[Rfam]
RNA: pemK RNA
RNA sequence: AUUAUGAUACUUCUGCCCGGCCAGCGUCACUGCAUUGGGGGCAGCCCGCUCAGUCGAGGGGGAACUUCGAUAUCAUCGAGGUUAUGA
Numbered sequence: 001a002u003u004a005u006g007a008u009a010c011u012u013c014u015g016c017c018c019g020g021c022c023a024g025c026g027u028c029a030c031u032g033c034a035u036u037g038g039g040g041g042c043a044g045c046c047c048g049c050u051c052a053g054u055c056g057a058g059g060g061g062g063a064a065c066u067u068c069g070a071u072a073u074c075a076u077c078g079a080g081g082u083u084a085u086g087a
Stems, first nucleotide, its partner, number of pairs: 012084001013044006045062003049058003063083008